[Rfam]
Mu-gpT-DE RNA: a 54-nucleotide RNA. The family's RNA type in Rfam is small RNA. Pairs were carried over by alignment from the consensus structure, which is taken from published work.
RNA sequence: CCUUGACAGCCGCAUUCCGCGACUGACAUUUGCCUAGACAAGGAGAUUAACAUG
Numbered sequence: 001c002c003u004u005g006a007c008a009g010c011c012g013c014a015u016u017c018c019g020c021g022a023c024u025g026a027c028a029u030u031u032g033c034c035u036a037g038a039c040a041a042g043g044a045g046a047u048u049a050a051c052a053u054g
Base pairs, nucleotide, nucleotide: 002042003041004040005039007025008024009023011021